[Rfam]
Nucleotides: 064
Base pairs, nucleotide, nucleotide: 001030002029003028004027005026006025
Number, partner (000 for none) and nucleotide at each position: 001030c002029a003028g004027g005026a006025a007000a008000a009000a010000a011000u012000u013000u014000c015000a016000u017000g018000g019000a020000g021000a022000u023000u024000a025006u026005u027004c028003c029002u030001g031000u032000u033000a034000a035000g036000u037000a038000a039000c040000a041000g042000a043000g044000u045000g046000g047000a048000a049000g050000a051000a052000a053000u054000u055000u056000a057000a058000a059000g060000a061000a062000u063000a064000a

Rfam assigns this 64-nucleotide RNA from Pelodictyon phaeoclathratiforme to the family "Lnt RNA". By type it is a cis-regulatory element. The family's consensus secondary structure is taken from published work.